S15-Flavobacteria ribosomal protein leader: a 68-nucleotide RNA. Rfam's curators put it in the seed alignment.
RNA sequence: UAUAUUUGCACAUUCAAUAAUAAUGAAUUAUUGAUAUACAUAAUAAUCAUUUAAAUAAUAUUGGCAUG
Numbered sequence: 001u002a003u004a005u006u007u008g009c010a011c012a013u014u015c016a017a018u019a020a021u022a023a024u025g026a027a028u029u030a031u032u033g034a035u036a037u038a039c040a041u042a043a044u045a046a047u048c049a050u051u052u053a054a055a056u057a058a059u060a061u062u063g064g065c066a067u068g
Stems, first nucleotide, its partner, number of pairs: 014034006
Annotation
The family's consensus secondary structure is taken from published work. On this family, see Eckert and Weinberg, BMC Microbiol 2020: "Discovery of 20 novel ribosomal leader candidates in bacteria and archaea".